[Rfam]
RNA sequence: GGUAAAUCGUUGAAAAAGAAGAGUACUAUAAAGAUGUUUUUUAGAGAUAGUAUGGCUGGUGAAAAUACUAAUCAUGUUUAUAGGAAAGCUGCUUUGGAGAGUAAUUAAAUAUUACCGUGUAAGCUGCGUUACUAGCUAAAUGAGGGCAUGAAUUAUUCAUGAACUAGGAUGGUACCGCGAUUUAAGUCGUUCCUAGC
Numbered sequence: 001g002g003u004a005a006a007u008c009g010u011u012g013a014a015a016a017a018g019a020a021g022a023g024u025a026c027u028a029u030a031a032a033g034a035u036g037u038u039u040u041u042u043a044g045a046g047a048u049a050g051u052a053u054g055g056c057u058g059g060u061g062a063a064a065a066u067a068c069u070a071a072u073c074a075u076g077u078u079u080a081u082a083g084g085a086a087a088g089c090u091g092c093u094u095u096g097g098a099g100a101g102u103a104a105u106u107a108a109a110u111a112u113u114a115c116c117g118u119g120u121a122a123g124c125u126g127c128g129u130u131a132c133u134a135g136c137u138a139a140a141u142g143a144g145g146g147c148a149u150g151a152a153u154u155a156u157u158c159a160u161g162a163a164c165u166a167g168g169a170u171g172g173u174a175c176c177g178c179g180a181u182u183u184a185a186g187u188c189g190u191u192c193c194u195a196g197c
Stems, first nucleotide, its partner, number of pairs: 007100002015095004026083006039071001048070006116128003147161006166194004177190005
The record is a 197-nucleotide RNA sequence from Thomasclavelia cocleata, which matches "T-box leader" in Rfam. The family's consensus secondary structure is taken from published work. A search with the family's covariance model found it, with a score of 126 bits. Its family is annotated with tRNA binding in the Gene Ontology. By type it is a cis-regulatory leader.